[Rfam]
RNA sequence: GAUGAUAAUACGCUUAAUUUCCUGUUCGAUGAACGGGAAAGCGGGGGAACCAAUGUUUUGGGGCGAAUCAUGAACGUGCAUGUAGGGAACCAUCUUUCCCGAGCCCGGCAGCUAACCUCGUCAGCAGUAGAUGGGUCAAUG
Number, nucleotide and partner (000 for none) at each position: 001g000002a000003u000004g000005a000006u000007a000008a000009u000010a000011c000012g125013c124014u123015u000016a000017a000018u040019u039020u038021c037022c036023u035024g034025u033026u032027c031028g000029a000030u000031g027032a026033a025034c024035g023036g022037g021038a020039a019040a018041g121042c120043g119044g118045g117046g116047g000048a000049a000050c000051c060052a059053a000054u000055g000056u000057u000058u000059u052060g051061g106062g105063g104064c000065g000066a000067a000068u000069c082070a081071u080072g079073a000074a000075c000076g000077u000078g000079c072080a071081u070082g069083u000084a000085g100086g099087g098088a097089a000090c000091c000092a000093u000094c000095u000096u000097u088098c087099c086100c085101g000102a000103g000104c063105c062106c061107g000108g000109c000110a000111g000112c000113u000114a000115a000116c046117c045118u044119c043120g042121u041122c000123a014124g013125c012126a000127g000128u000129a000130g000131a000132u000133g000134g000135g000136u000137c000138a000139a000140u000141g000
The family of this 141-nucleotide sequence from Paenibacillus sp. UNCCL117 is "c-di-AMP riboswitch aptamer (ydaO/yuaA leader)". Rfam's curators write: This family represents a conserved RNA structure found upstream of the ydaO and yuaA genes in Bacillus subtilis and related genes in other bacteria. Its family is annotated with regulation of gene expression and cyclic-di-AMP binding in the Gene Ontology.